RNA sequence: GUCCUGAGCAAGACAAAAAACUGCUCACCGCCUGACACCGCAUCACCUGAUCACUGAUGGCUCAACGGUAUCCGGCGGCACAACUCAAUAUCACAGCUGCCUUUUGAGCGGGUUAGCUGCAAUCCGAAACGGAGAACUCCGUUAGGACUGCGGUUAGGUUUUUACACCCUUUUUGCGGCAGCGCC
Numbered sequence: 001g002u003c004c005u006g007a008g009c010a011a012g013a014c015a016a017a018a019a020a021c022u023g024c025u026c027a028c029c030g031c032c033u034g035a036c037a038c039c040g041c042a043u044c045a046c047c048u049g050a051u052c053a054c055u056g057a058u059g060g061c062u063c064a065a066c067g068g069u070a071u072c073c074g075g076c077g078g079c080a081c082a083a084c085u086c087a088a089u090a091u092c093a094c095a096g097c098u099g100c101c102u103u104u105u106g107a108g109c110g111g112g113u114u115a116g117c118u119g120c121a122a123u124c125c126g127a128a129a130c131g132g133a134g135a136a137c138u139c140c141g142u143u144a145g146g147a148c149u150g151c152g153g154u155u156a157g158g159u160u161u162u163u164a165c166a167c168c169c170u171u172u173u174u175g176c177g178g179c180a181g182c183g184c185c
Base pairs, nucleotide, nucleotide: 028078029077030076031075032074034072035071037069038068039067040066041059042058043057044056045055060109061108062107063106064105065104094181096179097178098177099176100175116154117153118152119151120150129142130141131140132139133138
RNA: DUF2800 RNA